[Rfam]
The family of this 131-nucleotide sequence from Myotis brandtii is "Small nucleolar RNA SNORA65". NCBI's taxonomy places the organism under Eukaryota, Opisthokonta, Deuterostomia, Tetrapoda, Myotis. It scores 90 bits against the family's covariance model. Rfam describes the family as follows. U65 belongs to the H/ACA class of snoRNAs which are thought to guide the sites of modification of uridines to pseudouridines.
RNA sequence: CCCGCCACUGCACCUGACCACUUCUCUGUUGGCUGGUGCAUUCCAGUGGUGAGCUGAAAGCAAACCCCAGCUUAGGAAACAGGGUCAUUCUUCAUGUGGGUGACUCUGUGCCGAACAACCAGGAUAAAAAA
Number, nucleotide and partner (000 for none) at each position: 001c000002c000003c000004g000005c049006c048007a047008c046009u045010g044011c000012a000013c000014c000015u000016g000017a037018c036019c035020a034021c000022u031023u000024c000025u000026c000027u000028g000029u000030u000031g022032g000033c000034u020035g019036g018037u017038g000039c000040a000041u000042u000043c000044c010045a009046g008047u007048g006049g005050u000051g000052a000053g000054c000055u000056g000057a000058a000059a000060g000061c000062a000063a000064a000065c000066c123067c122068c000069a000070g119071c000072u117073u115074a000075g112076g111077a000078a000079a000080c108081a107082g106083g105084g104085u103086c000087a000088u100089u099090c098091u000092u000093c000094a000095u000096g000097u000098g090099g089100g088101u000102g000103a085104c084105u083106c082107u081108g080109u000110g000111c076112c075113g000114a000115a073116c000117a072118a000119c070120c000121a000122g067123g066124a000125u000126a000127a000128a000129a000130a000131a000